Shown here is a 102-nucleotide RNA from Burkholderia sp. WAC0059, a member of the family "Burkholderia sRNA Bp1_Cand612_SIPHT". Taxonomically the source falls in Burkholderia (Bacteria, Pseudomonadota, Burkholderiales, Burkholderiaceae).
[Rfam]
RNA sequence: AAAAAAAAUGGGCUGAACGCCCAUCUUUUUCUAAACGGUGGUCGCACCCGAGCUGCACACAAAAAAGCUGCACGCCCAGCGACUUCAAGAUUAUAGCCUUUU
Numbered sequence: 001a002a003a004a005a006a007a008a009u010g011g012g013c014u015g016a017a018c019g020c021c022c023a024u025c026u027u028u029u030u031c032u033a034a035a036c037g038g039u040g041g042u043c044g045c046a047c048c049c050g051a052g053c054u055g056c057a058c059a060c061a062a063a064a065a066a067g068c069u070g071c072a073c074g075c076c077c078a079g080c081g082a083c084u085u086c087a088a089g090a091u092u093a094u095a096g097c098c099u100u101u102u
Base pairs, nucleotide, nucleotide: 008024009023010022011021012020013019039093040092041091042090043089050085051084052083054081055080056079